The record is a 206-nucleotide RNA from Spathaspora passalidarum, which matches "Small nucleolar RNA snR43" in Rfam. The family is grouped with related families in Rfam's "SNORA9 clan". Rfam links the family to the GO terms RNA processing and nucleolus. The literature on the family includes a 1996 paper in Cell by Balakin et al., "The RNA world of the nucleolus: two major families of small RNAs defined by different box elements with related functions".
RNA sequence: AUCUCCUGUUUCUGCCCCAAAUUCAUUUACGUUUCCUUAGAAUUAUGGGUUCUGGUGAUGGAGAAGAUCAAGCCAUAGAACGGGCACUCACGACUUUUGAUACAUCCUGUGAGUGUCUUUUCUGUGGAUCGUGUGGAUUAUCUGAUUCCGUUGUGUGGUUGAAUUACGAACUUUUGUAAUGAAACCUGAUCGAUGCCACUAUAUUU
Numbered sequence: 001a002u003c004u005c006c007u008g009u010u011u012c013u014g015c016c017c018c019a020a021a022u023u024c025a026u027u028u029a030c031g032u033u034u035c036c037u038u039a040g041a042a043u044u045a046u047g048g049g050u051u052c053u054g055g056u057g058a059u060g061g062a063g064a065a066g067a068u069c070a071a072g073c074c075a076u077a078g079a080a081c082g083g084g085c086a087c088u089c090a091c092g093a094c095u096u097u098u099g100a101u102a103c104a105u106c107c108u109g110u111g112a113g114u115g116u117c118u119u120u121u122c123u124g125u126g127g128a129u130c131g132u133g134u135g136g137a138u139u140a141u142c143u144g145a146u147u148c149c150g151u152u153g154u155g156u157g158g159u160u161g162a163a164u165u166a167c168g169a170a171c172u173u174u175u176g177u178a179a180u181g182a183a184a185c186c187u188g189a190u191c192g193a194u195g196c197c198a199c200u201a202u203a204u205u206u
Stems, first nucleotide, its partner, number of pairs: 003063004016049004020044005073127008082118011133199004139195004153185002156182001159179001165178005